[Rfam]
RNA sequence: ACGGUAGGAAGUUCACUGUAGAGGUUACAAACUGAGUGUUAAUCACUCAUCCAAUCACCUCGGGGAAGGUCUGAGACAGGAGCCAAUCGCUGUCCUCACAGGACAUCAUCUGAACAGAUGAGCGAGUGCACAGAAAAAUGGGUCACAUGGGUGGUGUUCACGCACGAGACGUUGGUAAGCGAAAUAGCCAAUCAACUGAUGCGAUCCCAGUCGACUUGGAAACGCUCACGGCUGGCGCAAUGAGUUCAAUGUGUGAACUAGCACAAGAUGCUAGAACCCAAUUCAGACUACUCUCCUACCGC
Numbered sequence: 001a002c003g004g005u006a007g008g009a010a011g012u013u014c015a016c017u018g019u020a021g022a023g024g025u026u027a028c029a030a031a032c033u034g035a036g037u038g039u040u041a042a043u044c045a046c047u048c049a050u051c052c053a054a055u056c057a058c059c060u061c062g063g064g065g066a067a068g069g070u071c072u073g074a075g076a077c078a079g080g081a082g083c084c085a086a087u088c089g090c091u092g093u094c095c096u097c098a099c100a101g102g103a104c105a106u107c108a109u110c111u112g113a114a115c116a117g118a119u120g121a122g123c124g125a126g127u128g129c130a131c132a133g134a135a136a137a138a139u140g141g142g143u144c145a146c147a148u149g150g151g152u153g154g155u156g157u158u159c160a161c162g163c164a165c166g167a168g169a170c171g172u173u174g175g176u177a178a179g180c181g182a183a184a185u186a187g188c189c190a191a192u193c194a195a196c197u198g199a200u201g202c203g204a205u206c207c208c209a210g211u212c213g214a215c216u217u218g219g220a221a222a223c224g225c226u227c228a229c230g231g232c233u234g235g236c237g238c239a240a241u242g243a244g245u246u247c248a249a250u251g252u253g254u255g256a257a258c259u260a261g262c263a264c265a266a267g268a269u270g271c272u273a274g275a276a277c278c279c280a281a282u283u284c285a286g287a288c289u290a291c292u293c294u295c296c297u298a299c300c301g302c
Base pairs, nucleotide, nucleotide: 002301003300004299007296008295009294012257013256014255015254016253021061022060023059024058034048035047036046037045038044071286072285073284074283075282081233082232083231084230091105092104093103094102095101106121107120108119109118110117111116122229124227125226126225127224128223142215143214144213258274259273260272261271262270263269
The family of this 302-nucleotide RNA sequence from Anabarilius grahami is "Nuclear RNase P".
Taxonomically the source falls in Anabarilius (Eukaryota, Actinopteri, Otomorpha, Xenocypridinae).